[Rfam]
RNA: MIR1861 microRNA precursor family
RNA sequence: UUCUUAGGCCCGGUCUUGAGGCAGGAACUGAGUAGUUGGUGAACUCGCUCUAUGUUGUUCGUUCACUCGCGACACGGUUCCUGUCCCAAGACUGAGUCUGUGAA
Numbered sequence: 001u002u003c004u005u006a007g008g009c010c011c012g013g014u015c016u017u018g019a020g021g022c023a024g025g026a027a028c029u030g031a032g033u034a035g036u037u038g039g040u041g042a043a044c045u046c047g048c049u050c051u052a053u054g055u056u057g058u059u060c061g062u063u064c065a066c067u068c069g070c071g072a073c074a075c076g077g078u079u080c081c082u083g084u085c086c087c088a089a090g091a092c093u094g095a096g097u098c099u100g101u102g103a104a
Stems, first nucleotide, its partner, number of pairs: 001104003005100005011094008020085011032073002